Shown here is a 43-nucleotide RNA sequence from Kibdelosporangium aridum, a member of the family "L31-Actinobacteria ribosomal protein leader". The literature on the family includes a 2020 paper in BMC Microbiol by Eckert and Weinberg, "Discovery of 20 novel ribosomal leader candidates in bacteria and archaea". Rfam classes the family as a cis-regulatory leader. Taxonomically the source falls in Kibdelosporangium aridum (Bacteria, Actinomycetota, Actinomycetes, Pseudonocardiaceae). It is one of the family's seed sequences.
[Rfam]
RNA sequence: CCGGCUCCGGUUCACCCCGAGUGCGUGUGGGGACCCGGCGGCC
Numbered sequence: 001c002c003g004g005c006u007c008c009g010g011u012u013c014a015c016c017c018c019g020a021g022u023g024c025g026u027g028u029g030g031g032g033a034c035c036c037g038g039c040g041g042c043c
Stems, first nucleotide, its partner, number of pairs: 003043003007038004015032005